Small nucleolar RNA SNORA9: a 117-nucleotide RNA from Pterocles gutturalis. About the family: ACA9 is a member of the H/ACA class of snoRNA that guide the sites of modification of uridines to pseudouridines. Rfam 15.1 lists 1,202 matches to the family in 518 species. Clan: SNORA9 clan.
RNA sequence: CCGCAGGCCUCCAGCGUGGCGGCGCCAUUCCUACAGCACUUGCCAGAGCAGCCCCAGGACGGUUUGAGGCCUCUCCCCGCUCUCCCUGGGGGGUGGUUAUAGAAAUCCCGGACACCC
Number, nucleotide and partner (000 for none) at each position: 001c000002c000003g043004c042005a041006g040007g039008c000009c000010u000011c000012c000013a000014g000015c000016g000017u027018g026019g025020c000021g000022g000023c000024g000025c019026c018027a017028u000029u000030c000031c000032u000033a000034c000035a000036g000037c000038a000039c007040u006041u005042g004043c003044c000045a000046g000047a000048g000049c000050a000051g000052c000053c000054c000055c110056a000057g108058g107059a106060c000061g000062g000063u000064u000065u000066g000067a000068g000069g000070c096071c095072u000073c093074u092075c091076c000077c089078c088079g087080c000081u000082c000083u000084c000085c000086c000087u079088g078089g077090g000091g075092g074093g073094u000095g071096g070097u000098u000099a000100u000101a000102g000103a000104a000105a000106u059107c058108c057109c000110g055111g000112a000113c000114a000115c000116c000117c000